[Rfam]
RNA: Small nucleolar RNA SNORA22
RNA sequence: AUGCACAGUGAACACCCACGGCUGCUAAUGUGGCUCACCCUGGUCUUUUGUAUAUCUGUGCUACAGUAACUCUGAUCUGUACCUCUGCAUUAGGAGAGUUUACUUCUCUCUUACAUGUAUUCAGCGGAUCAGAACAAUA
Numbered sequence: 001a002u003g004c005a006c007a008g009u010g011a012a013c014a015c016c017c018a019c020g021g022c023u024g025c026u027a028a029u030g031u032g033g034c035u036c037a038c039c040c041u042g043g044u045c046u047u048u049u050g051u052a053u054a055u056c057u058g059u060g061c062u063a064c065a066g067u068a069a070c071u072c073u074g075a076u077c078u079g080u081a082c083c084u085c086u087g088c089a090u091u092a093g094g095a096g097a098g099u100u101u102a103c104u105u106c107u108c109u110c111u112u113a114c115a116u117g118u119a120u121u122c123a124g125c126g127g128a129u130c131a132g133a134a135c136a137a138u139a
Stems, first nucleotide, its partner, number of pairs: 003061006010055001014051001016043003020039001024034003063078001065076001067074002085124003088117003092112007